[Rfam]
RNA sequence: CAUUCGACCGCGGGAGAGAUCGGCCUUCAGCGCCGGCGCCGAAGGAGCAACCGCCCCGGAAACUCUCAGGCAAAAGGACCGCGGGCCGAAC
Number, nucleotide and partner (000 for none) at each position: 001c000002a000003u000004u000005c000006g086007a000008c084009c083010g082011c081012g080013g079014g000015a000016g000017a000018g000019a000020u036021c035022g034023g033024c000025c000026u000027u000028c000029a000030g000031c000032g000033c023034c022035g021036g020037c000038g071039c070040c069041g067042a066043a000044g000045g065046a064047g063048c000049a000050a000051c059052c058053g000054c000055c000056c000057c000058g052059g051060a000061a000062a000063c047064u046065c045066u042067c041068a000069g040070g039071c038072a000073a000074a000075a000076g000077g000078a000079c013080c012081g011082c010083g009084g008085g000086c006087c000088g000089a000090a000091c000

A member of the RNA family "Glycine riboswitch aptamer" from Dichotomicrobium thermohalophilum, 91 nucleotides long.
Taxonomically the source falls in Dichotomicrobium (Bacteria, Pseudomonadota, Alphaproteobacteria, Hyphomicrobiaceae).
A search with the family's covariance model found it, with a score of 72 bits.
Pairs were carried over by alignment from the consensus structure.